[Rfam]
RNA sequence: AGAGUAAGUCAGCCUAAUCCAGCGCAUCAAAGUGUGUAACGCUGGAGCGGAGGAACCAAAUUGUGGGGCGUAUCUUGGAGAAAGUUAUGAGUUAUGAGUUAUGAGUUUUUAAUUAACUCCUCACUCCCAACUAACAACUUUCUUCAGAGGGGCAUCUCUCAGCCCUAGCCCGUCAGCUAACUUCGUAGGCAUUGAGAAGAGACUGA
Numbered sequence: 001a002g003a004g005u006a007a008g009u010c011a012g013c014c015u016a017a018u019c020c021a022g023c024g025c026a027u028c029a030a031a032g033u034g035u036g037u038a039a040c041g042c043u044g045g046a047g048c049g050g051a052g053g054a055a056c057c058a059a060a061u062u063g064u065g066g067g068g069c070g071u072a073u074c075u076u077g078g079a080g081a082a083a084g085u086u087a088u089g090a091g092u093u094a095u096g097a098g099u100u101a102u103g104a105g106u107u108u109u110u111a112a113u114u115a116a117c118u119c120c121u122c123a124c125u126c127c128c129a130a131c132u133a134a135c136a137a138c139u140u141u142c143u144u145c146a147g148a149g150g151g152g153c154a155u156c157u158c159u160c161a162g163c164c165c166u167a168g169c170c171c172g173u174c175a176g177c178u179a180a181c182u183u184c185g186u187a188g189g190c191a192u193u194g195a196g197a198a199g200a201g202a203c204u205g206a
Stems, first nucleotide, its partner, number of pairs: 012190003018046007047186006057065002066171003074147002150165004

A member of the RNA family "c-di-AMP riboswitch aptamer (ydaO/yuaA leader)" from Nostoc sp. ATCC 43529, 206 nucleotides long. Lineage of the source: Bacteria > Bacillati > Cyanobacteriota > Cyanophyceae > Nostoc. The match comes from Rfam's covariance-model search (67 bits).